RNA sequence: GGGAAAUGAGGAGUGGCUGGAUCUCACAAAUUAUGUGAGUUGAGUGUCCACCCACAGCCUGGUUACGACAAUCAGGGCACUCUCCCAAUUUCAAUCUGAUCCC
Numbered sequence: 001g002g003g004a005a006a007u008g009a010g011g012a013g014u015g016g017c018u019g020g021a022u023c024u025c026a027c028a029a030a031u032u033a034u035g036u037g038a039g040u041u042g043a044g045u046g047u048c049c050a051c052c053c054a055c056a057g058c059c060u061g062g063u064u065a066c067g068a069c070a071a072u073c074a075g076g077g078c079a080c081u082c083u084c085c086c087a088a089u090u091u092c093a094a095u096c097u098g099a100u101c102c103c
Base pairs, nucleotide, nucleotide: 001103002102003101004100014094016092023039024038025037026036027035042082043081044080045079046078047076048075060074061073062072063071